[Rfam]
RNA: Small nucleolar RNA snoR136
RNA sequence: UUGGCCUCACUUGUUAAGAUCUUGAUUUGUAUCUAGCUUUCUAAUCGAUGAAGCAGGAUCCAAUUGUGUGGCCUAAAGUUAUGUUCUCCUCGCUAUCCAGAGUUUCACUUAACAUGAUGCCUUUGGACGUCGGAGAACUACAUUU
Numbered sequence: 001u002u003g004g005c006c007u008c009a010c011u012u013g014u015u016a017a018g019a020u021c022u023u024g025a026u027u028u029g030u031a032u033c034u035a036g037c038u039u040u041c042u043a044a045u046c047g048a049u050g051a052a053g054c055a056g057g058a059u060c061c062a063a064u065u066g067u068g069u070g071g072c073c074u075a076a077a078g079u080u081a082u083g084u085u086c087u088c089c090u091c092g093c094u095a096u097c098c099a100g101a102g103u104u105u106c107a108c109u110u111a112a113c114a115u116g117a118u119g120c121c122u123u124u125g126g127a128c129g130u131c132g133g134a135g136a137a138c139u140a141c142a143u144u145u
Base pairs, nucleotide, nucleotide: 001076002075003073004072005071008068009067010066012062013061015058021057022056023055024054026052027051028050031049032048033047083138084137085136086135087134088133089132091129092128096127097126098125099124100123105117106116107115